A member of the RNA family "Ruegeria cis52 sRNA" from Pseudoruegeria aquimaris, 179 nucleotides long. A reference for the family is Rivers et al. (2016), "Experimental Identification of Small Non-Coding RNAs in the Model Marine Bacterium Ruegeria pomeroyi DSS-3", Front Microbiol. Rfam 15.1 lists 277 matches to the family in 275 species. Pairs were carried over by alignment from the consensus structure, which was predicted with RNAfold. It scores 142 bits against the family's covariance model.
RNA sequence: UGCGCAGGGCGUGUUUCAUCACGAUGUUGGGGAAGCUCACGCCCUUCAGCCGCGCGGUGCGGAUGUAUUGGGCCGUCAUCACCUCGGUCAUCGAGGCCCGCGUCAUCCGCGCGAUGUAGCCCACGCCGUAGAGCGCGAUCGUCACCACCGGCAGGAAGAAGUUCUCGAAGGUGGCGUUG
Numbered sequence: 001u002g003c004g005c006a007g008g009g010c011g012u013g014u015u016u017c018a019u020c021a022c023g024a025u026g027u028u029g030g031g032g033a034a035g036c037u038c039a040c041g042c043c044c045u046u047c048a049g050c051c052g053c054g055c056g057g058u059g060c061g062g063a064u065g066u067a068u069u070g071g072g073c074c075g076u077c078a079u080c081a082c083c084u085c086g087g088u089c090a091u092c093g094a095g096g097c098c099c100g101c102g103u104c105a106u107c108c109g110c111g112c113g114a115u116g117u118a119g120c121c122c123a124c125g126c127c128g129u130a131g132a133g134c135g136c137g138a139u140c141g142u143c144a145c146c147a148c149c150g151g152c153a154g155g156a157a158g159a160a161g162u163u164c165u166c167g168a169a170g171g172u173g174g175c176g177u178u179g
Stems, first nucleotide, its partner, number of pairs: 006139001009136004014131002016128001020125001028123004038113001040111003046105001048103001051100002054097001055075004060070003082096005145179001147177001149174001151172002154165004